Notes:
A member of the RNA family "NiCo (Nickel/Cobalt) riboswitch aptamer" from Dielma fastidiosa, 94 nucleotides long. The family is grouped with related families in Rfam's "NiCo_riboswitches".
RNA sequence: ACAGUACAAACUGAGCAGGCGAUGAACCUUUUAGGUCAUGGGGCCGGGCUGCUGAGGCGGCAACAGAUGUUAACUUAGCAUCUGUGGGACAGUU
Numbered sequence: 001a002c003a004g005u006a007c008a009a010a011c012u013g014a015g016c017a018g019g020c021g022a023u024g025a026a027c028c029u030u031u032u033a034g035g036u037c038a039u040g041g042g043g044c045c046g047g048g049c050u051g052c053u054g055a056g057g058c059g060g061c062a063a064c065a066g067a068u069g070u071u072a073a074c075u076u077a078g079c080a081u082c083u084g085u086g087g088g089a090c091a092g093u094u
Stems, first nucleotide, its partner, number of pairs: 010093004016088001018045003022039004027034001048061005063085006
Dot-bracket structure: .........((((..(.(((.((((.(......).))))...)))..(((((....))))).((((((...........))))))..).)))).
Its family is annotated with cobalt ion binding and metal ion homeostasis in the Gene Ontology. For this family Rfam cites "Bacterial riboswitches cooperatively bind Ni(2+) or Co(2+) ions and control expression of heavy metal transporters" (Furukawa et al., Mol Cell, 2015). Taxonomically the source falls in Dielma (Bacteria, Bacillati, Erysipelotrichia, Erysipelotrichales).